Rfam assigns this 175-nucleotide RNA sequence from Centaurea solstitialis to the family "Antisense RNA which regulates isiA expression". The match comes from Rfam's covariance-model search (101 bits). For this family Rfam cites "An internal antisense RNA regulates expression of the photosynthesis gene isiA" (Duhring et al., Proc Natl Acad Sci U S A, 2006).
RNA sequence: AUAAACCAAAUAUGAUACUUGGGCUAGGGUCAGAUGGUGAUUUUUCUUACAUCUCCUCCUCCCGGAGCCCAAGUAUCAUUCGCCCCCAAAUAAAGGCUUGAAUACUAGAGAAAAGCACUAGACCUAAACAUGAUUAGUGAAUACUAAAUUGUGGUCAUUUUAUUUUCUUCAUACA
Numbered sequence: 001a002u003a004a005a006c007c008a009a010a011u012a013u014g015a016u017a018c019u020u021g022g023g024c025u026a027g028g029g030u031c032a033g034a035u036g037g038u039g040a041u042u043u044u045u046c047u048u049a050c051a052u053c054u055c056c057u058c059c060u061c062c063c064g065g066a067g068c069c070c071a072a073g074u075a076u077c078a079u080u081c082g083c084c085c086c087c088a089a090a091u092a093a094a095g096g097c098u099u100g101a102a103u104a105c106u107a108g109a110g111a112a113a114a115g116c117a118c119u120a121g122a123c124c125u126a127a128a129c130a131u132g133a134u135u136a137g138u139g140a141a142u143a144c145u146a147a148a149u150u151g152u153g154g155u156c157a158u159u160u161u162a163u164u165u166u167c168u169u170c171a172u173a174c175a
Base pairs, nucleotide, nucleotide: 137172138171139170140169141168146165147164148163